Small nucleolar RNA SNORA40: a 121-nucleotide sequence from Microtus ochrogaster.
Gene Ontology terms of the family: nucleolus and RNA processing.
For this family Rfam cites "Mapping to nucleotide resolution of pseudouridine residues in large subunit ribosomal RNAs from representative eukaryotes, prokaryotes, archaebacteria, mitochondria and chloroplasts" (Ofengand and Bakin, J Mol Biol, 1997).
Pairs were carried over by alignment from the consensus structure, which was predicted with RNAalifold.
From the family's description: The snoRNA ACA 40 belongs to the H/ACA family of snoRNAs and guides the pseudouridylation of 28S rRNA subunit at position U4565. NB This family has a high threshold value to exclude a large number of closely related sequences that do not appear to have conserved H and ACA boxes, and may be pseudogenes.

RNA sequence: AGCGCUUGUAUAUGCUUUUGUUCAGCUGUGGACAAAGGCAGGUUAGACAGGUGAAAAAUAAACCCUCUUUUGCAACCCAGAACUCAUUGUAGAAAUUUUGAUAUAUACAAGAAGGAAUAGA
Numbered sequence: 001a002g003c004g005c006u007u008g009u010a011u012a013u014g015c016u017u018u019u020g021u022u023c024a025g026c027u028g029u030g031g032a033c034a035a036a037g038g039c040a041g042g043u044u045a046g047a048c049a050g051g052u053g054a055a056a057a058a059u060a061a062a063c064c065c066u067c068u069u070u071u072g073c074a075a076c077c078c079a080g081a082a083c084u085c086a087u088u089g090u091a092g093a094a095a096u097u098u099u100g101a102u103a104u105a106u107a108c109a110a111g112a113a114g115g116a117a118u119a120g121a
Base pairs, nucleotide, nucleotide: 003053004052005051006050007049008048009047011045014039015038016037017036018035019034020033021032026030062118065115066114068112069111070110071109072108078100079099080098081097082096084094087091